Overview
The family of this 101-nucleotide RNA sequence from Sphingomonas sp. G-3-2-10 is "Repression of heat shock gene expression (ROSE) element". Its family is annotated with regulation of translation and response to temperature stimulus in the Gene Ontology. The family has 13 seed sequences and 381 matches in Rfam 15.1. For this family Rfam cites "Replicon-specific regulation of small heat shock genes in Agrobacterium tumefaciens" (Balsiger et al., J Bacteriol, 2004).
RNA sequence: CCGGACGCCAAACCGGGUCCGGUGGGACAUGGAGGGCGUCGGCUCUUCUACCGGCGCGGCUCAUGCCCAAAUUGCUCAGAAAGAGGAUUUGGAAAUGAGAA
Numbered sequence: 001c002c003g004g005a006c007g008c009c010a011a012a013c014c015g016g017g018u019c020c021g022g023u024g025g026g027a028c029a030u031g032g033a034g035g036g037c038g039u040c041g042g043c044u045c046u047u048c049u050a051c052c053g054g055c056g057c058g059g060c061u062c063a064u065g066c067c068c069a070a071a072u073u074g075c076u077c078a079g080a081a082a083g084a085g086g087a088u089u090u091g092g093a094a095a096u097g098a099g100a101a
Base pairs, nucleotide, nucleotide: 001022002021003020004019005018006017008016009015036057037056038055039054040053041052042051060099061098062097063096064095067092068091069090070089071088072087073086075085076084077083